RNA sequence: UAAAUCAUAAAAUCAUAUCCCCAUAUAUUCUCGGUAAUAUGGAUUGGGAGUUUCUACAGAGUAACCGUAAAUUACUCUACUAUGGACGGUGCUUCUUCUAUA
Numbered sequence: 001u002a003a004a005u006c007a008u009a010a011a012a013u014c015a016u017a018u019c020c021c022c023a024u025a026u027a028u029u030c031u032c033g034g035u036a037a038u039a040u041g042g043a044u045u046g047g048g049a050g051u052u053u054c055u056a057c058a059g060a061g062u063a064a065c066c067g068u069a070a071a072u073u074a075c076u077c078u079a080c081u082a083u084g085g086a087c088g089g090u091g092c093u094u095c096u097u098c099u100a101u102a
Base pairs, nucleotide, nucleotide: 018088021085022084023083024082025081029049030048031047032046033045034044035043058078059077060076061075062074063073064072

Shown here is a 102-nucleotide sequence from Lentibacillus kapialis, a member of the family "Purine riboswitch aptamer". The family's consensus secondary structure is taken from published work. It scores 80 bits against the family's covariance model.